Shown here is a 76-nucleotide RNA sequence, a member of the family "HDV ribozyme from F. prausnitzii". Pairs were carried over by alignment from the consensus structure, which is taken from published work. It is one of the family's seed sequences. The family has 48 seed sequences and 3,803 matches in Rfam 15.1. For this family Rfam cites "Widespread occurrence of self-cleaving ribozymes" (Webb et al., Science, 2009).

[Rfam]
RNA sequence: GCCGCUUUAUAUUUUGUACACCUCUACGUGGUAAGCGGCAGGCAACGUUUAUUUUAUAGACGGCUAAGAUGCAAAA
Numbered sequence: 001g002c003c004g005c006u007u008u009a010u011a012u013u014u015u016g017u018a019c020a021c022c023u024c025u026a027c028g029u030g031g032u033a034a035g036c037g038g039c040a041g042g043c044a045a046c047g048u049u050u051a052u053u054u055u056a057u058a059g060a061c062g063g064c065u066a067a068g069a070u071g072c073a074a075a076a
Stems, first nucleotide, its partner, number of pairs: 001039007020032003046062005